RNA sequence: GAGGUCAGCGGUCCCCGUCCGGCAGCGCGUCGCGCCCCCGGGCGCGAUGGGU
Dot-bracket structure: ...............(((((((..((((...))))..)))))))........
RNA: ffh sRNA